Record summary: The record is a 97-nucleotide sequence, which matches "skipping-rope RNA" in Rfam. Rfam classes the family as a small RNA. The base pairs follow the family's consensus structure, which is taken from published work.
RNA sequence: GUUAUUCGAGGUGGAAGAUUUCGUACAAUCCACACGCCGAUGGUACUGACAGGGGAAUCCCGAGAGAUGCAGGAGAUUUGUCCCCCUGCCGAAUAAC
Numbered sequence: 001g002u003u004a005u006u007c008g009a010g011g012u013g014g015a016a017g018a019u020u021u022c023g024u025a026c027a028a029u030c031c032a033c034a035c036g037c038c039g040a041u042g043g044u045a046c047u048g049a050c051a052g053g054g055g056a057a058u059c060c061c062g063a064g065a066g067a068u069g070c071a072g073g074a075g076a077u078u079u080g081u082c083c084c085c086c087u088g089c090c091g092a093a094u095a096a097c
Base pairs, nucleotide, nucleotide: 001097002096003095004094005093006092007091008090011033012032013031014030015029023083025081026080027079035064037055038054069089070088071087072086073085